A member of the RNA family "Group II catalytic intron D1-D4-7" from Blautia wexlerae, 146 nucleotides long. A search with the family's covariance model found it, with a score of 58 bits. Taxonomically the source falls in Blautia (Bacteria, Bacillati, Lachnospirales, Lachnospiraceae). Gene Ontology term of the family: Group II intron splicing. The base pairs follow the family's consensus structure. For this family Rfam cites "Control of branch-site choice by a group II intron" (Chu et al., EMBO J, 2001).
RNA sequence: CCUGCUGUUCCGUCAGUUGAGUCUAAUAUCUACAAAGUAGCGGGUAACUGCUAUGAGGAAACGAGAUAUGAAAAAUCAUCUUUACAGAGAUGUAGAACUGAUUCCGUGAGGAUAAGAACAAGUAAGAGCAACACUGACUUGAGAUG
Numbered sequence: 001c002c003u004g005c006u007g008u009u010c011c012g013u014c015a016g017u018u019g020a021g022u023c024u025a026a027u028a029u030c031u032a033c034a035a036a037g038u039a040g041c042g043g044g045u046a047a048c049u050g051c052u053a054u055g056a057g058g059a060a061a062c063g064a065g066a067u068a069u070g071a072a073a074a075a076u077c078a079u080c081u082u083u084a085c086a087g088a089g090a091u092g093u094a095g096a097a098c099u100g101a102u103u104c105c106g107u108g109a110g111g112a113u114a115a116g117a118a119c120a121a122g123u124a125a126g127a128g129c130a131a132c133a134c135u136g137a138c139u140u141g142a143g144a145u146g
Base pairs, nucleotide, nucleotide: 002019004017005016006015007014027068028067029066030065031064033058037054038053039052040051041050042049043048081096082095083094084093085092086091098116099115104111105110121139122138123137125135126134